[Rfam]
RNA sequence: GUAAUCCUCAAUUGUAAGUAGCUUUGGAUAAAAGCUUCUGCUAAAUGAAUAAAU
Numbered sequence: 001g002u003a004a005u006c007c008u009c010a011a012u013u014g015u016a017a018g019u020a021g022c023u024u025u026g027g028a029u030a031a032a033a034g035c036u037u038c039u040g041c042u043a044a045a046u047g048a049a050u051a052a053a054u
Base pairs, nucleotide, nucleotide: 013043014041015040016039020036021035022034023033024032025031
The family of this 54-nucleotide RNA from Cyprinus carpio is "UnaL2 LINE 3' element". The match comes from Rfam's covariance-model search (57 bits). NCBI's taxonomy places the organism under Eukaryota, Neopterygii, Osteoglossocephalai, Cyprininae, Cyprinus carpio. It is annotated as a cis-regulatory element.